A member of the RNA family "Group II catalytic intron D1-D4-3" from Tetragenococcus halophilus, 170 nucleotides long. A search with the family's covariance model found it, with a score of 107 bits. Taxonomically the source falls in Tetragenococcus halophilus (Bacteria, Bacillati, Lactobacillales, Enterococcaceae). The base pairs follow the family's consensus structure.

[Rfam]
RNA sequence: AAAUCAGCGAUGAUGGGGUGAAGGAAGUGGUGGCGCAAAUCUCUUGAACCUACGCACAGGAACUUGAUGAGGCUAAAUGGUGGAUAAGGCUGCAUAUCAAGCCGAAGUCCAAAAGGUAAACGUAAAACCAAGACAGUAAAUCAAGAGGUUGUGGAGAGAAAGAUAAGUGU
Numbered sequence: 001a002a003a004u005c006a007g008c009g010a011u012g013a014u015g016g017g018g019u020g021a022a023g024g025a026a027g028u029g030g031u032g033g034c035g036c037a038a039a040u041c042u043c044u045u046g047a048a049c050c051u052a053c054g055c056a057c058a059g060g061a062a063c064u065u066g067a068u069g070a071g072g073c074u075a076a077a078u079g080g081u082g083g084a085u086a087a088g089g090c091u092g093c094a095u096a097u098c099a100a101g102c103c104g105a106a107g108u109c110c111a112a113a114a115g116g117u118a119a120a121c122g123u124a125a126a127a128c129c130a131a132g133a134c135a136g137u138a139a140a141u142c143a144a145g146a147g148g149u150u151g152u153g154g155a156g157a158g159a160a161a162g163a164u165a166a167g168u169g170u
Stems, first nucleotide, its partner, number of pairs: 003014004027170003031166001036162001040157005046152001047150005063145005072137003078130004082110004088103004